Rfam assigns this 62-nucleotide RNA from Chania multitudinisentens to the family "Pseudomonas sRNA P26".
On this family, see Livny et al., Nucleic Acids Res 2006: "Identification of 17 Pseudomonas aeruginosa sRNAs and prediction of sRNA-encoding genes in 10 diverse pathogens using the bioinformatic tool sRNAPredict2".
It scores 65 bits against the family's covariance model.
Pairs were carried over by alignment from the consensus structure, which was predicted with RNAalifold.
It is annotated as a non-coding RNA gene.
About the family: This small RNA (sRNA) was computationally identified in the genome of the opportunistic pathogen Pseudomonas aeruginosa and its expression verified by northern blot analysis. P26 is conserved across many Gammaproteobacteria species and appears to be consistently located between the DNA directed RNA polymerase (beta subunit) and 50S ribosomal protein L7/L12 genes.
[Rfam]
RNA sequence: ACUUUUCAGAGUGCAGUCUGGCUUAACAGACUGAUGGCUGGUGGCUUUUUAGUCACCAGCCU
Dot-bracket structure: .............(((((..........)))))..((((((((((......)))))))))).
Numbered sequence: 001a002c003u004u005u006u007c008a009g010a011g012u013g014c015a016g017u018c019u020g021g022c023u024u025a026a027c028a029g030a031c032u033g034a035u036g037g038c039u040g041g042u043g044g045c046u047u048u049u050u051a052g053u054c055a056c057c058a059g060c061c062u
Stems, first nucleotide, its partner, number of pairs: 014033005036061010